[Rfam]
RNA sequence: GAAAUCCUGCCUCGGUAACUGCUAGCCACAGGCCGAGUAUCGAGCCUUGCAGGCCAGUUGGCAACAACUUGCUUGAUGCGUAGGCACGAAAACAGGCGAGGAGCAAUGGUAACGGGUAAAGCCGACCGUGAAGGUGACAAGUCCCGAAAUGACGAGUUGGAGAGGGCUGAUGGUUUCAAGACGCCAGCAAGCAACAAGGCAAUUCGCGCUAAGGCAAGCGGAUUGUCUCCGCCCGGGAUAGUUAGCC
Numbered sequence: 001g002a003a004a005u006c007c008u009g010c011c012u013c014g015g016u017a018a019c020u021g022c023u024a025g026c027c028a029c030a031g032g033c034c035g036a037g038u039a040u041c042g043a044g045c046c047u048u049g050c051a052g053g054c055c056a057g058u059u060g061g062c063a064a065c066a067a068c069u070u071g072c073u074u075g076a077u078g079c080g081u082a083g084g085c086a087c088g089a090a091a092a093c094a095g096g097c098g099a100g101g102a103g104c105a106a107u108g109g110u111a112a113c114g115g116g117u118a119a120a121g122c123c124g125a126c127c128g129u130g131a132a133g134g135u136g137a138c139a140a141g142u143c144c145c146g147a148a149a150u151g152a153c154g155a156g157u158u159g160g161a162g163a164g165g166g167c168u169g170a171u172g173g174u175u176u177c178a179a180g181a182c183g184c185c186a187g188c189a190a191g192c193a194a195c196a197a198g199g200c201a202a203u204u205c206g207c208g209c210u211a212a213g214g215c216a217a218g219c220g221g222a223u224u225g226u227c228u229c230c231g232c233c234c235g236g237g238a239u240a241g242u243u244a245g246c247c
Base pairs, nucleotide, nucleotide: 012036013035014034015033019031020030021029023217025215026214038091040089041088044085045084046083047082048080049079050075051074052073053072054071056069057068058067059066060065139243141239142238143237144236145235146234160233164230165229166192167191168190171186172185173184174183197228198227199226200225201224202223203222204221205220206219207218
RNA: Group II catalytic intron D1-D4-6